Shown here is a 98-nucleotide sequence from Halonatronomonas betaini, a member of the family "Glycine riboswitch aptamer".
Lineage of the source: Bacteria > Bacillati > Bacillota > Clostridia > Halonatronomonas.
Rfam links the family to the GO term glycine biosynthetic process.
RNA sequence: AAGAAUUUCAGGAGAGAGCUUUGUUAUUACAGAGCGCCGAAGGGGCAAGGUCUUUAAAAGAGAUUGAAACUCUCAGGCAUAAGAAUCCUGAUUGGACG
Numbered sequence: 001a002a003g004a005a006u007u008u009c010a011g012g013a014g015a016g017a018g019c020u021u022u023g024u025u026a027u028u029a030c031a032g033a034g035c036g037c038c039g040a041a042g043g044g045g046c047a048a049g050g051u052c053u054u055u056a057a058a059a060g061a062g063a064u065u066g067a068a069a070c071u072c073u074c075a076g077g078c079a080u081a082a083g084a085a086u087c088c089u090g091a092u093u094g095g096a097c098g
Base pairs, nucleotide, nucleotide: 008091009090010089011088012087013086019034020033021032022031036078037077038076039074040073043072044071045070049065050064051063052062053061

From the family's description: This family represents the bacterial glycine riboswitch.